[Rfam]
RNA sequence: AGCAAAAUGAUGAGAUUUGUUUAAUGGCUGAAUUGGAUGUUGAAUUCCCAUAUCAUUAAAUGGUCUUCAAAGUUCUCUGAUUGCU
Numbered sequence: 001a002g003c004a005a006a007a008u009g010a011u012g013a014g015a016u017u018u019g020u021u022u023a024a025u026g027g028c029u030g031a032a033u034u035g036g037a038u039g040u041u042g043a044a045u046u047c048c049c050a051u052a053u054c055a056u057u058a059a060a061u062g063g064u065c066u067u068c069a070a071a072g073u074u075c076u077c078u079g080a081u082u083g084c085u
Stems, first nucleotide, its partner, number of pairs: 001085005
Small nucleolar RNA R160: an 85-nucleotide RNA from Corchorus capsularis. By type it is a C/D-box small nucleolar RNA. A reference for the family is Chen et al. (2003), "The high diversity of snoRNAs in plants: identification and comparative study of 120 snoRNA genes from Oryza sativa", Nucleic Acids Res. Rfam 15.1 lists 799 matches to the family in 221 species. The pairing is the family consensus, mapped onto this sequence.